[Rfam]
RNA sequence: CUGCAUCUUUGACAGCCUGGGCUCUCUGGUGUGAGAUAACCUGGGUUUUAAUAUUUCAGAUGCAAUAUUAAAUGUCCCUGCGCUUUCUGCUCGCCUCUUUCAUGGCGUCUCGGAUUGAAUCGGGGAGGACAAAU
Numbered sequence: 001c002u003g004c005a006u007c008u009u010u011g012a013c014a015g016c017c018u019g020g021g022c023u024c025u026c027u028g029g030u031g032u033g034a035g036a037u038a039a040c041c042u043g044g045g046u047u048u049u050a051a052u053a054u055u056u057c058a059g060a061u062g063c064a065a066u067a068u069u070a071a072a073u074g075u076c077c078c079u080g081c082g083c084u085u086u087c088u089g090c091u092c093g094c095c096u097c098u099u100u101c102a103u104g105g106c107g108u109c110u111c112g113g114a115u116u117g118a119a120u121c122g123g124g125g126a127g128g129a130c131a132a133a134u
Stems, first nucleotide, its partner, number of pairs: 002064007010050002014047008075126006083117001086114004092107004
RNA: Small nucleolar RNA SNORA31